[Rfam]
RNA sequence: UUGAAAGCGAUGAAUGAGAAUAUCUUUUUGAAAGUUUCAAGAGAGCAAAUGUUUGGUGAGAAUUUGUAUCCGUAAAAAAGAGAUCCGCUCAGGAGCAGUCGGUGAAGAAUCGAACGAGUGAUUUCGUUAUAAAAUCAAUGAGGGAAAUUUAUUAAAUUUCUGAAUAUGGGUGGCACCGCGAUAACUUCGUCCCAAUG
Numbered sequence: 001u002u003g004a005a006a007g008c009g010a011u012g013a014a015u016g017a018g019a020a021u022a023u024c025u026u027u028u029u030g031a032a033a034g035u036u037u038c039a040a041g042a043g044a045g046c047a048a049a050u051g052u053u054u055g056g057u058g059a060g061a062a063u064u065u066g067u068a069u070c071c072g073u074a075a076a077a078a079a080g081a082g083a084u085c086c087g088c089u090c091a092g093g094a095g096c097a098g099u100c101g102g103u104g105a106a107g108a109a110u111c112g113a114a115c116g117a118g119u120g121a122u123u124u125c126g127u128u129a130u131a132a133a134a135u136c137a138a139u140g141a142g143g144g145a146a147a148u149u150u151a152u153u154a155a156a157u158u159u160c161u162g163a164a165u166a167u168g169g170g171u172g173g174c175a176c177c178g179c180g181a182u183a184a185c186u187u188c189g190u191c192c193c194a195a196u197g
Stems, first nucleotide, its partner, number of pairs: 007096002015091004023081006034070001036068001045067006099113005115126003143161007167194004178190004
Rfam assigns this 197-nucleotide sequence from Dialister micraerophilus to the family "T-box leader".
It scores 127 bits against the family's covariance model.